[Rfam]
RNA sequence: CUUUUAUUCAGAGUGAUGGAGGUACAUAGGACCUGUGAAGUCACGGCAACCCCUUGAAAAAGGAAGGUGCCAGCCUGAGCGAGUAAGUCGAACAAUAAGAG
Numbered sequence: 001c002u003u004u005u006a007u008u009c010a011g012a013g014u015g016a017u018g019g020a021g022g023u024a025c026a027u028a029g030g031a032c033c034u035g036u037g038a039a040g041u042c043a044c045g046g047c048a049a050c051c052c053c054u055u056g057a058a059a060a061a062g063g064a065a066g067g068u069g070c071c072a073g074c075c076u077g078a079g080c081g082a083g084u085a086a087g088u089c090g091a092a093c094a095a096u097a098a099g100a101g
Base pairs, nucleotide, nucleotide: 001101002100003099004098005097006096007095008094013044014043015042016041017040021033022032023031027079030076045071046070047069048068050067051066052063053062054061055060080090081089082088
A member of the RNA family "SAM riboswitch aptamer (S box leader)" from Firmicutes bacterium CAG:227, 101 nucleotides long. The organism belongs to Bacillota, within Bacteria.